[Rfam]
RNA sequence: GGGUGUGCUACUUUCCGUAGCACAGGUUUUGGGCAGGUCGGGCCGCCUCCC
Numbered sequence: 001g002g003g004u005g006u007g008c009u010a011c012u013u014u015c016c017g018u019a020g021c022a023c024a025g026g027u028u029u030u031g032g033g034c035a036g037g038u039c040g041g042g043c044c045g046c047c048u049c050c051c
Stems, first nucleotide, its partner, number of pairs: 005023007032051002035048004
Dot-bracket structure: ....(((((((.....)))))))........((.((((......)))).))